Notes:
The record is a 137-nucleotide RNA from Staphylococcus simulans, which matches "Ribosomal protein L20 leader" in Rfam. Pairs were carried over by alignment from the consensus structure, which was predicted with CMfinder. From the family's description: This family is a putative r-protein leader autoregulatory structure found in B. subtilis and other low-GC Gram-positive bacteria. It is located in the 5' untranslated regions of mRNAs encoding initiation factor 3 followed by ribosomal proteins L35 and L20 (infC-rpmI-rplT). A Rho-independent transcription terminator structure that is probably involved in regulation is included at the 3' end.
RNA sequence: CGAACCAAGUAGAAGCUUCCCGCUUCUCACCUGUAGCGACGCUUAAGGCUGUUGGCAGGUCCAAAACAACGUUACAAUGAUAACGUUGACUUUAUGGAAAAGAGCGGGCACUUCUGUGUCCGCUCUUUUUUUACUUG
Numbered sequence: 001c002g003a004a005c006c007a008a009g010u011a012g013a014a015g016c017u018u019c020c021c022g023c024u025u026c027u028c029a030c031c032u033g034u035a036g037c038g039a040c041g042c043u044u045a046a047g048g049c050u051g052u053u054g055g056c057a058g059g060u061c062c063a064a065a066a067c068a069a070c071g072u073u074a075c076a077a078u079g080a081u082a083a084c085g086u087u088g089a090c091u092u093u094a095u096g097g098a099a100a101a102g103a104g105c106g107g108g109c110a111c112u113u114c115u116g117u118g119u120c121c122g123c124u125c126u127u128u129u130u131u132u133a134c135u136u137g
Base pairs, nucleotide, nucleotide: 011027012026013025014024015023016022029060030059031058038053039052040051041049042048103124104123105122106121107120108119109118110117111116